mir-7 microRNA precursor family: an 85-nucleotide RNA from Rhodnius prolixus. The organism belongs to Rhodnius, within Eukaryota. About the family: This family represents the microRNA (miRNA) precursor mir-7. The base pairs follow the family's consensus structure, which was predicted with PFOLD. Its family is annotated with RISC complex and miRNA-mediated post-transcriptional gene silencing in the Gene Ontology.

RNA sequence: AAACUCCUAUUGUGUGGAAGACUAGUGAUUUUGUUGUUUUGAAUUCUGCAACAAUGAAUCUCUAGUCUCCGUACAAAGGUAGUUU
Numbered sequence: 001a002a003a004c005u006c007c008u009a010u011u012g013u014g015u016g017g018a019a020g021a022c023u024a025g026u027g028a029u030u031u032u033g034u035u036g037u038u039u040u041g042a043a044u045u046c047u048g049c050a051a052c053a054a055u056g057a058a059u060c061u062c063u064a065g066u067c068u069c070c071g072u073a074c075a076a077a078g079g080u081a082g083u084u085u
Stems, first nucleotide, its partner, number of pairs: 002084004007079002010076008019068004025062001027060005033055006